[Rfam]
RNA sequence: AUUCUUUUUGGCACACAUUUUAACUAAUAUGUCAGUAUUGACUGCCAAUACUAAUAUAUUAGUACUCCUAUAUACUUUGUGCAUUACUGUUAAUCCCCAUGAAUAAUAUAUA
Numbered sequence: 001a002u003u004c005u006u007u008u009u010g011g012c013a014c015a016c017a018u019u020u021u022a023a024c025u026a027a028u029a030u031g032u033c034a035g036u037a038u039u040g041a042c043u044g045c046c047a048a049u050a051c052u053a054a055u056a057u058a059u060u061a062g063u064a065c066u067c068c069u070a071u072a073u074a075c076u077u078u079g080u081g082c083a084u085u086a087c088u089g090u091u092a093a094u095c096c097c098c099a100u101g102a103a104u105a106a107u108a109u110a111u112a
Stems, first nucleotide, its partner, number of pairs: 005103003009099002011095001015090003021034001023032002025029001035065002039061003070084002073081002
The record is a 112-nucleotide sequence from Cercocebus atys, which matches "Mitochondrial DNA control region secondary structure A" in Rfam.